[Rfam]
RNA sequence: GUGGGGUACGGUGAUAUGUACCCAGCAACAGUGUGGGGUAAAAUGGUUGGCUCUAUGUGCGCCAUUGCCGGUGUUCUUACUAUCUCCCUGCCUGUGCCUGUCAUUGUUUCCAAC
Dot-bracket structure: ((.((..((((.((((.((((...............((.(........(((.........)))..........).))................)))).)))).))))..)).))
Numbered sequence: 001g002u003g004g005g006g007u008a009c010g011g012u013g014a015u016a017u018g019u020a021c022c023c024a025g026c027a028a029c030a031g032u033g034u035g036g037g038g039u040a041a042a043a044u045g046g047u048u049g050g051c052u053c054u055a056u057g058u059g060c061g062c063c064a065u066u067g068c069c070g071g072u073g074u075u076c077u078u079a080c081u082a083u084c085u086c087c088c089u090g091c092c093u094g095u096g097c098c099u100g101u102c103a104u105u106g107u108u109u110c111c112a113a114c
Stems, first nucleotide, its partner, number of pairs: 001114002004111002008107004013102004018097004037077002040074001049063003
This 114-nucleotide RNA from Cyprinodon variegatus belongs to the Rfam family "Potassium channel RNA editing signal". The literature on the family includes a 2004 paper in Nat Struct Mol Biol by Bhalla et al., "Control of human potassium channel inactivation by editing of a small mRNA hairpin". The match comes from Rfam's covariance-model search (107 bits). NCBI's taxonomy places the organism under Eukaryota, Chordata, Cyprinodontinae, Cyprinodontini, Cyprinodon. The family's RNA type in Rfam is cis-regulatory element.